The family of this 229-nucleotide sequence from Petrotoga mobilis is "HNH endonuclease-associated RNA and ORF (HEARO) RNA".
It is one of the family's seed sequences.
Rfam classes the family as a non-coding RNA gene.
RNA sequence: GUCAACUACCCCCGUCUAAAGACGGAGGCUUGAAGCCUCGGAGUUGACCAGCCUAAGUUCGAAGACAGCCUCACGGCAAAUUUGAAGAACUACGUUAUUCUGGUCAUGACACCUUGGAAUGCUGGAGCCAGUUCCAAGCCCUGUCGUUCAACAUUAAACAGGUAUACGGGGUUGAAACCAGUGUGUUGAAUGUAAAAAGCCAGAAUAACAUUGGCGAGGCUCACUUUAA
Number, nucleotide and partner (000 for none) at each position: 001g048002u047003c046004a045005a044006c043007u042008a000009c000010c028011c027012c025013c024014g000015u022016c021017u000018a000019a000020a000021g016022a015023c000024g013025g012026a000027g011028g010029c000030u000031u000032g000033a000034a000035g000036c000037c000038u000039c000040g000041g000042a007043g006044u005045u004046g003047a002048c001049c000050a000051g215052c214053c213054u000055a211056a091057g090058u089059u088060c087061g000062a000063a000064g000065a000066c000067a000068g000069c000070c000071u000072c000073a000074c000075g000076g000077c000078a000079a000080a000081u000082u000083u000084g000085a000086a000087g060088a059089a058090c057091u056092a000093c000094g209095u208096u207097a206098u205099u204100c203101u202102g201103g200104u199105c000106a000107u000108g000109a144110c143111a000112c000113c138114u137115u136116g135117g134118a133119a132120u131121g225122c000123u000124g000125g222126a221127g220128c219129c218130a000131g120132u119133u118134c117135c116136a115137a114138g113139c000140c000141c000142u000143g110144u109145c000146g191147u190148u189149c188150a187151a186152c185153a184154u183155u000156a000157a000158a182159c181160a000161g179162g178163u174164a173165u000166a000167c000168g000169g000170g000171g000172u000173u164174g163175a000176a000177a000178c162179c161180a000181g159182u158183g154184u153185g152186u151187u150188g149189a148190a147191u146192g000193u000194a000195a000196a000197a000198a000199g104200c103201c102202a101203g100204a099205a098206u097207a096208a095209c094210a000211u055212u000213g053214g052215c051216g000217a000218g129219g128220c127221u126222c125223a000224c000225u121226u000227u000228a000229a000